[Rfam]
RNA sequence: UACAAUGGCAUAAAUAGGUUACUUAAGGGUGACGGUAUCAUCCCCAGUAGGCAGGAAAGGGGGUGGUGCUAUGAUAACUGUGUUUGAAGCAUUAUCGCUUAUGUUGUCGUUUGGCAUAUUUGUUAUAGCGCUACUGGCUUUUAACCACAAAAAAUAAUCCACCCUUGAGUUUGGCGGCUCAGGUGGAUUAUUCUUCUGCUUGGUGCCAGUCCCCUUGAAGGGAACCUAGCUAUUGUAUAGACUGAAGAUGCUAGCACAUCUUCA
Number, nucleotide and partner (000 for none) at each position: 001u237002a236003c235004a234005a233006u000007g231008g230009c229010a000011u000012a000013a000014a000015u209016a000017g207018g206019u205020u000021a000022c169023u168024u167025a166026a165027g164028g163029g162030u000031g159032a158033c000034g000035g000036u000037a000038u066039c065040a064041u000042c063043c062044c061045c060046a000047g000048u000049a000050g000051g000052c000053a000054g000055g000056a000057a000058a000059g000060g045061g044062g043063g042064u040065g039066g038067u000068g000069c000070u000071a000072u000073g000074a000075u000076a000077a000078c136079u000080g134081u133082g132083u000084u000085u000086g000087a000088a000089g104090c103091a102092u000093u000094a000095u000096c000097g000098c000099u000100u000101a000102u091103g090104u089105u000106g000107u000108c000109g000110u000111u000112u000113g000114g129115c128116a000117u000118a000119u000120u000121u000122g000123u000124u000125a000126u000127a000128g115129c114130g000131c000132u082133a081134c080135u000136g078137g000138c000139u000140u000141u000142u000143a000144a000145c000146c000147a000148c000149a000150a000151a000152a000153a000154a000155u000156a000157a000158u032159c031160c000161a000162c029163c028164c027165u026166u025167g024168a023169g022170u000171u000172u000173g000174g000175c000176g000177g000178c000179u000180c000181a000182g000183g000184u000185g000186g000187a000188u000189u000190a000191u000192u000193c000194u000195u000196c000197u000198g000199c000200u000201u000202g000203g000204u000205g019206c018207c017208a000209g015210u223211c222212c221213c220214c000215u000216u000217g000218a000219a000220g213221g212222g211223a210224a000225c000226c000227u000228a000229g009230c008231u007232a000233u005234u004235g003236u002237a001238u000239a000240g000241a000242c000243u264244g263245a262246a261247g260248a259249u258250g257251c000252u000253a000254g000255c000256a000257c250258a249259u248260c247261u246262u245263c244264a243

The family of this 264-nucleotide RNA from Salipaludibacillus agaradhaerens is "BsrG". The literature on the family includes a 2010 paper in Nucleic Acids Res by Irnov et al., "Identification of regulatory RNAs in Bacillus subtilis". The base pairs follow the family's consensus structure, which was predicted with WAR. The organism belongs to Salipaludibacillus, within Bacteria. It is annotated as a small RNA. Rfam describes the family as follows. bsrE, bsrG and bsrH pair through intermolecular interactions with antisense sRNAs. They form type I toxin/antitoxin system that includes an mRNA encoding for a short, toxic peptide (bsrE, bsrG and bsrH) and an antitoxin that is comprised of an antisense RNA. bsrG encodes a 39-amino-acid toxin, and the 180 nucleotide antisense sRNA called SR4 acts as the antitoxin (they overlap by 123 nucleotides). SR4 interaction with the 3'UTR of bsrG RNA promotes bsrG degradation and inhibits its translation.